Background: Shown here is a 149-nucleotide RNA from Ailuropoda melanoleuca, a member of the family "U12 minor spliceosomal RNA". Taxonomically the source falls in Ailuropoda (Eukaryota, Vertebrata, Teleostomi, Euteleostomi). The family's RNA type in Rfam is spliceosomal small nuclear RNA. On this family, see Otake et al., Mol Cell 2002: "The divergent U12-type spliceosome is required for pre-mRNA splicing and is essential for development in Drosophila".
RNA sequence: AUGCCUUAACUGCAUGAGUAAGGAAAAUAACGAUUUGGGGUGAUGCCUGAAUCCUAACUGCUAGUGUGAGAUGAACUUUUGAGUGAGUAAAGUUGCCCUUCAGGUGACCUGCCUACUUUGUGGGAUGCCUCGGAGUGGCGAUCUGCCCA
Numbered sequence: 001a002u003g004c005c006u007u008a009a010c011u012g013c014a015u016g017a018g019u020a021a022g023g024a025a026a027a028u029a030a031c032g033a034u035u036u037g038g039g040g041u042g043a044u045g046c047c048u049g050a051a052u053c054c055u056a057a058c059u060g061c062u063a064g065u066g067u068g069a070g071a072u073g074a075a076c077u078u079u080u081g082a083g084u085g086a087g088u089a090a091a092g093u094u095g096c097c098c099u100u101c102a103g104g105u106g107a108c109c110u111g112c113c114u115a116c117u118u119u120g121u122g123g124g125a126u127g128c129c130u131c132g133g134a135g136u137g138g139c140g141a142u143c144u145g146c147c148c149a
Base pairs, nucleotide, nucleotide: 004023005022006021007020008019032053033052034051035050036049037048038047039046054070055069057067058066084149085148087146088145091144092143093141094140095139096138099133100132102130103129104128105127106126108124109123110122111121112120
The pairing is the family consensus, mapped onto this sequence.